[Rfam]
RNA sequence: CGUCUAAAUAGAGGUGCGCAAAGAAUGAGUACAUUUGUCCGCAGUGGCGCGAGGGAGCGCCGGGCAUGUGGAAAGGUCAAUGCGCCGAAGCUUGCUGCCGUUCCCCUUCGGCACCGGCUGGGGCAAUCGCGUGAAGAACGCGUGUCUUGUCAUGAAAGGCAACUUUCAUGGAGCGCUAUUUAACCU
Number, nucleotide and partner (000 for none) at each position: 001c000002g000003u000004c000005u000006a181007a180008a179009u178010a177011g176012a000013g000014g000015u000016g085017c084018g083019c082020a081021a000022a000023g078024a077025a000026u000027g000028a000029g000030u000031a000032c070033a069034u068035u000036u066037g065038u064039c063040c062041g061042c000043a000044g000045u000046g000047g000048c000049g000050c000051g000052a000053g000054g000055g000056a000057g000058c000059g000060c000061c041062g040063g039064g038065c037066a036067u000068g034069u033070g032071g000072a000073a000074a000075g000076g000077u024078c023079a000080a000081u020082g019083c018084g017085c016086c000087g000088a000089a119090g118091c117092u116093u000094g000095c000096u113097g112098c111099c110100g109101u000102u000103c000104c000105c000106c000107u000108u000109c100110g099111g098112c097113a096114c000115c000116g092117g091118c090119u089120g148121g147122g146123g145124c144125a143126a000127u000128c000129g141130c140131g139132u138133g000134a000135a000136g000137a000138a132139c131140g130141c129142g000143u125144g124145u123146c122147u121148u120149g000150u171151c170152a169153u168154g167155a166156a165157a000158g000159g000160c000161a000162a000163c000164u000165u156166u155167c154168a153169u152170g151171g150172a000173g000174c000175g000176c011177u010178a009179u008180u007181u006182a000183a000184c000185c000186u000
Shown here is a 186-nucleotide RNA from Brevibacillus fluminis, a member of the family "Lysine riboswitch aptamer".